[Rfam]
Source information:
The record is an 80-nucleotide sequence from Salvia splendens, which matches "Small nucleolar RNA R12" in Rfam. Rfam describes the family as follows. snoR12 is a C/D box small nucleolar RNA, which acts as a methylation guide for 25S ribosomal RNA in plants. snoR12 has been alternatively named snoZ44 in Arabidopsis and snoZ131 in rice. Rfam classes the family as a C/D-box small nucleolar RNA. Its family is annotated with nucleolus and RNA processing in the Gene Ontology. The literature on the family includes a 2003 paper in Nucleic Acids Res by Chen et al., "The high diversity of snoRNAs in plants: identification and comparative study of 120 snoRNA genes from Oryza sativa".

RNA sequence: GUAUGAAUGAUGAAAAAAUCAGACGGAUUCCCAAUGAGAUUUCGAUCUUUGAUCAUUAGUACCAGCUACUUCUGACUUAU
Numbered sequence: 001g002u003a004u005g006a007a008u009g010a011u012g013a014a015a016a017a018a019u020c021a022g023a024c025g026g027a028u029u030c031c032c033a034a035u036g037a038g039a040u041u042u043c044g045a046u047c048u049u050u051g052a053u054c055a056u057u058a059g060u061a062c063c064a065g066c067u068a069c070u071u072c073u074g075a076c077u078u079a080u
Base pairs, nucleotide, nucleotide: 001080002079003078005076